[Rfam]
The family of this 87-nucleotide RNA sequence from Actinomadura sp. WAC 06369 is "ZMP/ZTP riboswitch aptamer (pfl RNA motif)". It scores 48 bits against the family's covariance model. The base pairs follow the family's consensus structure, which is taken from published work.

RNA sequence: UGACGUCCACGCGACUGGCGCAGUCAAGGUGGAGACGACCACCGGGGAGCGACCGUAGUCCGCGCACCGCGCGCCUGGGUGUUCGGG
Numbered sequence: 001u002g003a004c005g006u007c008c009a010c011g012c013g014a015c016u017g018g019c020g021c022a023g024u025c026a027a028g029g030u031g032g033a034g035a036c037g038a039c040c041a042c043c044g045g046g047g048a049g050c051g052a053c054c055g056u057a058g059u060c061c062g063c064g065c066a067c068c069g070c071g072c073g074c075c076u077g078g079g080u081g082u083u084c085g086g087g
Stems, first nucleotide, its partner, number of pairs: 003056003010051003015046002017075005029042004064082005